[Rfam]
The family of this 76-nucleotide RNA from Hucho hucho is "mir-19 microRNA precursor family". A search with the family's covariance model found it, with a score of 64 bits. On this family, see Lagos-Quintana et al., Science 2001: "Identification of novel genes coding for small expressed RNAs". The family's consensus secondary structure was predicted with RNAalifold.
RNA sequence: GAUCUCUGCUAGUUUUGCAUAGUUGCACUACAAUAGAAAUGGAGUUGUGCAAAUCUAUGCAAAACUGACGGUGGCC
Numbered sequence: 001g002a003u004c005u006c007u008g009c010u011a012g013u014u015u016u017g018c019a020u021a022g023u024u025g026c027a028c029u030a031c032a033a034u035a036g037a038a039a040u041g042g043a044g045u046u047g048u049g050c051a052a053a054u055c056u057a058u059g060c061a062a063a064a065c066u067g068a069c070g071g072u073g074g075c076c
Base pairs, nucleotide, nucleotide: 003074004073006071007070008069010067011066012065013064014063015062016061017060018059019058023052024051025050026049027048028047030045031044